[Rfam]
Rfam assigns this 145-nucleotide RNA from Actinomadura rubrisoli to the family "c-di-AMP riboswitch aptamer (ydaO/yuaA leader)". NCBI's taxonomy places the organism under Bacteria, Actinomycetes, Streptosporangiales, Thermomonosporaceae, Actinomadura. About the family: This family represents a conserved RNA structure found upstream of the ydaO and yuaA genes in Bacillus subtilis and related genes in other bacteria.
RNA sequence: GCGGUUCGUUCGCCAUGCCCGCACGGCUUCCCGCGGAGCCGGGGACCCAUCGUCCCUCGGGGUGAAUCGGCCUGCCGCAGGCCGUAGGGCGACUUCCACGCCCGAACCCGUCAGCUAACCCGGUAGGCGGCUUGGAAGCCAAGGA
Dot-bracket structure: ..........((((....((((..........)))).((((((....(..........)(((.....((((.........))))..((((.........))))...))).........)))))).))))................